Background
Shown here is a 122-nucleotide sequence from Paenibacillus macerans, a member of the family "azaaromatic riboswitch aptamer (yjdF RNA)".
RNA sequence: GGUUUGGAGCGAAAAAACACGGCCCGGUUGGUAGUCCGGGCGCACGCGGCUUGGAACGCUUGAAUCCGGCGGCGUGUCAGUAACCUUCCCCCCUCGGGAUGUCCAUCGCUUCCGAUUGAACA
Numbered sequence: 001g002g003u004u005u006g007g008a009g010c011g012a013a014a015a016a017a018c019a020c021g022g023c024c025c026g027g028u029u030g031g032u033a034g035u036c037c038g039g040g041c042g043c044a045c046g047c048g049g050c051u052u053g054g055a056a057c058g059c060u061u062g063a064a065u066c067c068g069g070c071g072g073c074g075u076g077u078c079a080g081u082a083a084c085c086u087u088c089c090c091c092c093c094u095c096g097g098g099a100u101g102u103c104c105a106u107c108g109c110u111u112c113c114g115a116u117u118g119a120a121c122a
Stems, first nucleotide, its partner, number of pairs: 004114001006112006022041006042077006087099004

A search with the family's covariance model found it, with a score of 83 bits.